[Rfam]
RNA sequence: CGCGCAGCAGGACGGAAAGACCCCGAGACCUUUACUAUAGUUUGGUAUUGGUGUUCGGUGUGGCUUGUGUAGGAUAGGUGGGAGACUGUGAGACCCGGACGCCAGUUCGGGUGGAGUCAUCGUUGAAAUACCACUCUGGUCAUACUGGAUAUCUAACUUCGGCCCGUAAUCCGGGUCAGGGACAGUGCCUGAUGGGUAGUUUAACUGGGGCGGUUGCCUCCUAAAGAGUAACGGAGGCGCCCAAAGGUUCCCUCAGCCUGGUUGGCAAUCAGGUGGCGAGUGUAAGUGCACAAGGGAGCUUGACUGUGAGAGAGACAUCUCGAGCAGGGACGAAAGUCGGGACUAGUGAUCCGGCGGUACAUUGUGGAAUGGCCGUCGCUCAACGGAUAAAAGGUACCUCGGGGAUAACAGGCUGAUCUUGCCCAAGAGUCCAUAUCGACGGCAUGGUUUGGCACCUCGAUGUCGGCUCGUCGCAUCCUGGGGCUGGAGUAGGUCCCAAGGGUUGGGCUGUUCGCCCAUUAAAGCGGUACGCGAGCUGGGUUUAGAACGUCGUGAGACAGUUCGGUCCCUAUCCGCUGCGCGCGCA
Numbered sequence: 001c002g003c004g005c006a007g008c009a010g011g012a013c014g015g016a017a018a019g020a021c022c023c024c025g026a027g028a029c030c031u032u033u034a035c036u037a038u039a040g041u042u043u044g045g046u047a048u049u050g051g052u053g054u055u056c057g058g059u060g061u062g063g064c065u066u067g068u069g070u071a072g073g074a075u076a077g078g079u080g081g082g083a084g085a086c087u088g089u090g091a092g093a094c095c096c097g098g099a100c101g102c103c104a105g106u107u108c109g110g111g112u113g114g115a116g117u118c119a120u121c122g123u124u125g126a127a128a129u130a131c132c133a134c135u136c137u138g139g140u141c142a143u144a145c146u147g148g149a150u151a152u153c154u155a156a157c158u159u160c161g162g163c164c165c166g167u168a169a170u171c172c173g174g175g176u177c178a179g180g181g182a183c184a185g186u187g188c189c190u191g192a193u194g195g196g197u198a199g200u201u202u203a204a205c206u207g208g209g210g211c212g213g214u215u216g217c218c219u220c221c222u223a224a225a226g227a228g229u230a231a232c233g234g235a236g237g238c239g240c241c242c243a244a245a246g247g248u249u250c251c252c253u254c255a256g257c258c259u260g261g262u263u264g265g266c267a268a269u270c271a272g273g274u275g276g277c278g279a280g281u282g283u284a285a286g287u288g289c290a291c292a293a294g295g296g297a298g299c300u301u302g303a304c305u306g307u308g309a310g311a312g313a314g315a316c317a318u319c320u321c322g323a324g325c326a327g328g329g330a331c332g333a334a335a336g337u338c339g340g341g342a343c344u345a346g347u348g349a350u351c352c353g354g355c356g357g358u359a360c361a362u363u364g365u366g367g368a369a370u371g372g373c374c375g376u377c378g379c380u381c382a383a384c385g386g387a388u389a390a391a392a393g394g395u396a397c398c399u400c401g402g403g404g405a406u407a408a409c410a411g412g413c414u415g416a417u418c419u420u421g422c423c424c425a426a427g428a429g430u431c432c433a434u435a436u437c438g439a440c441g442g443c444a445u446g447g448u449u450u451g452g453c454a455c456c457u458c459g460a461u462g463u464c465g466g467c468u469c470g471u472c473g474c475a476u477c478c479u480g481g482g483g484c485u486g487g488a489g490u491a492g493g494u495c496c497c498a499a500g501g502g503u504u505g506g507g508c509u510g511u512u513c514g515c516c517c518a519u520u521a522a523a524g525c526g527g528u529a530c531g532c533g534a535g536c537u538g539g540g541u542u543u544a545g546a547a548c549g550u551c552g553u554g555a556g557a558c559a560g561u562u563c564g565g566u567c568c569c570u571a572u573c574c575g576c577u578g579c580g581c582g583c584g585c586a
Base pairs, nucleotide, nucleotide: 001582002581003580004579005578006577007576008575010574011573012572014569015568022403023402024401025400026399027398028395029394030393031392032391034200035199036198037197041192042191044189045188046187047186050153051152052151053150054149055148056147057146058145059144060143061142062141063140064139065138067136077135078134079133080132081131084118085117086116093112094111095110096109097108098107099106100105157180158179159178161177162176163175164174165173166172203215204214205213206212216238217237218236219235220234221233239384241341242340247299248298249297250296251295252294253279254278256274257273258272259271260270261269280289281288304327305326306325307324310321311320312319329338330337331336352378353377354376355375356374357373358372360371361370412453413452414451416450417447418446420444421443422442423441427437428436464539465537466536467535468534469531470528471527472526473525474524477502478501480497481496482495483494484493485492504518505517506516507515508514545563546562547561548560549558550557551556
This 586-nucleotide part of an RNA from Arthrobacter sunyaminii belongs to the Rfam family "Bacterial large subunit ribosomal RNA".